The family of this 131-nucleotide RNA sequence from Tupaia belangeri is "Small nucleolar RNA SNORA38". ACA38 is a member of the H/ACA class of snoRNA that guide the sites of modification of uridines to pseudouridines. By type it is an H/ACA-box small nucleolar RNA. Pairs were carried over by alignment from the consensus structure, which was predicted with RNAfold. Rfam links the family to the GO terms nucleolus, Cajal body and RNA processing. The family has 25 seed sequences and 628 matches in Rfam 15.1. The organism belongs to Tupaia, within Eukaryota.

RNA sequence: CCCUCCUACAAAGGCGUGUCUGUGGUUGCCUGUCUUUGGACACGUAAGAAUUGGAGGCAGAGAAAUGUGGAUUUGGAGGAAUCUGGAGCCUGCUUGCUCCCCGCAGGCUCAAGAUCACCCAUCCCAUAUAG
Number, nucleotide and partner (000 for none) at each position: 001c000002c057003c056004u055005c054006c053007u000008a000009c000010a000011a000012a000013g000014g000015c044016g043017u042018g041019u040020c039021u038022g000023u000024g030025g029026u000027u000028g000029c025030c024031u000032g000033u000034c000035u000036u000037u000038g021039g020040a019041c018042a017043c016044g015045u000046a000047a000048g000049a000050a000051u000052u000053g006054g005055a004056g003057g002058c000059a000060g000061a000062g000063a000064a000065a000066u000067g000068u000069g124070g123071a122072u000073u121074u000075g000076g000077a000078g000079g000080a000081a000082u000083c000084u000085g000086g000087a000088g000089c000090c000091u000092g108093c107094u106095u105096g104097c103098u000099c000100c000101c000102c000103g097104c096105a095106g094107g093108c092109u000110c000111a000112a000113g000114a000115u000116c000117a000118c000119c000120c000121a073122u071123c070124c069125c000126a000127u000128a000129u000130a000131g000